Shown here is a 137-nucleotide RNA from Digitaria exilis, a member of the family "MIR2118 microRNA precursor family".
On this family, see Xue et al., Nucleic Acids Res 2009: "Characterization and expression profiles of miRNAs in rice seeds".
Gene Ontology terms of the family: RISC complex and miRNA-mediated post-transcriptional gene silencing.
Rfam 15.1 lists 2,377 matches to the family in 45 species.
A search with the family's covariance model found it, with a score of 114 bits.
[Rfam]
RNA sequence: GCAUCGAAGAGGAAUAAAAGAGGGCCUACGAGCAGUGGGAAUGGGAACAUGGAGGAAGGCUUAAAUUUCAUUUAUGAGUCUUCCCAAUGCCUCCCAUUCCUAUUGUUCUUAGGUGCUCAUUCCUCUUCUUCUUGGCA
Number, nucleotide and partner (000 for none) at each position: 001g000002c000003a000004u000005c000006g000007a000008a000009g128010a127011g126012g125013a124014a000015u000016a121017a120018a000019a000020g118021a117022g116023g000024g000025c113026c112027u111028a110029c000030g108031a107032g106033c105034a104035g000036u102037g101038g100039g099040a098041a097042u096043g095044g094045g093046a092047a000048c089049a088050u087051g000052g085053a000054g084055g083056a082057a081058g080059g079060c078061u077062u076063a000064a000065a000066u000067u000068u000069c000070a000071u000072u000073u000074a000075u000076g062077a061078g060079u059080c058081u057082u056083c055084c054085c052086a000087a050088u049089g048090c000091c000092u046093c045094c044095c043096a042097u041098u040099c039100c038101u037102a036103u000104u034105g033106u032107u031108c030109u000110u028111a027112g026113g025114u000115g000116c022117u021118c020119a000120u017121u016122c000123c000124u013125c012126u011127u010128c009129u000130u000131c000132u000133u000134g000135g000136c000137a000